The family of this 383-nucleotide sequence from Hahella sp. CCB-MM4 is "Bacterial RNase P class A".
It scores 320 bits against the family's covariance model.
Lineage of the source: Bacteria > Pseudomonadota > Oceanospirillales > Hahellaceae > Hahella.

RNA sequence: CGAGUCUGUUAGACAGUCGCUGUCCGGAGGGAUCGCCUAUUUUAUAGGUUGUCUGCCGGAGGGAGGAAAGUCCGGGCUCCACAGGGCGAAGUGCCAGGUAACGCCUGGGCGGCGCGAGCCGACGGAAAGUGCAACAGAAAGUAUACCGCCUAAGUGUAUCGGUUUCCGAUACAACGGUAAGGUUGAAAUGGUGCGGUAAGAGCGCACCGCAUGGCUGGUAACAGUCCAUGGCGAUGGAAAACCCCACUCGGAGCAAGACCAAAUAGGGGUCCAAUGGCGUGGCCCACGCUGGACCCGGGUAGGUCGCUUGAGGUGCAUGGUGACGUGCAUCCCAGAUGAAUGACUGUCCUAGACAGAACCCGGCUUAUCGACAGACUCACUUA
Numbered sequence: 001c002g003a004g005u006c007u008g009u010u011a012g013a014c015a016g017u018c019g020c021u022g023u024c025c026g027g028a029g030g031g032a033u034c035g036c037c038u039a040u041u042u043u044a045u046a047g048g049u050u051g052u053c054u055g056c057c058g059g060a061g062g063g064a065g066g067a068a069a070g071u072c073c074g075g076g077c078u079c080c081a082c083a084g085g086g087c088g089a090a091g092u093g094c095c096a097g098g099u100a101a102c103g104c105c106u107g108g109g110c111g112g113c114g115c116g117a118g119c120c121g122a123c124g125g126a127a128a129g130u131g132c133a134a135c136a137g138a139a140a141g142u143a144u145a146c147c148g149c150c151u152a153a154g155u156g157u158a159u160c161g162g163u164u165u166c167c168g169a170u171a172c173a174a175c176g177g178u179a180a181g182g183u184u185g186a187a188a189u190g191g192u193g194c195g196g197u198a199a200g201a202g203c204g205c206a207c208c209g210c211a212u213g214g215c216u217g218g219u220a221a222c223a224g225u226c227c228a229u230g231g232c233g234a235u236g237g238a239a240a241a242c243c244c245c246a247c248u249c250g251g252a253g254c255a256a257g258a259c260c261a262a263a264u265a266g267g268g269g270u271c272c273a274a275u276g277g278c279g280u281g282g283c284c285c286a287c288g289c290u291g292g293a294c295c296c297g298g299g300u301a302g303g304u305c306g307c308u309u310g311a312g313g314u315g316c317a318u319g320g321u322g323a324c325g326u327g328c329a330u331c332c333c334a335g336a337u338g339a340a341u342g343a344c345u346g347u348c349c350u351a352g353a354c355a356g357a358a359c360c361c362g363g364c365u366u367a368u369c370g371a372c373a374g375a376c377u378c379a380c381u382u383a
Stems, first nucleotide, its partner, number of pairs: 002378009011368001012348007020063002023060005068366003072363005077253004084285004090248004094108005109123001110121004124244002129242002132237001146182002148178003155173006190208006209232001210230005215224003257305004267296006276290005312331008
Dot-bracket structure: .(((((((((((((((((.((.(((((............................))))).))....[[[.[[[[[((((...[[[[..(((((((((.....)))))(((((....)))).)((...((.(.............(((((....((((((.......))))))..)))..)).......((((((.......))))))(((((((((....))).))))).)....)...)))))))).))))...((((......((((((...(((((.]]]]))))))))))).....))))......((((((((....))))))))..........)))))))..........]]]]]]]].).))))))))).....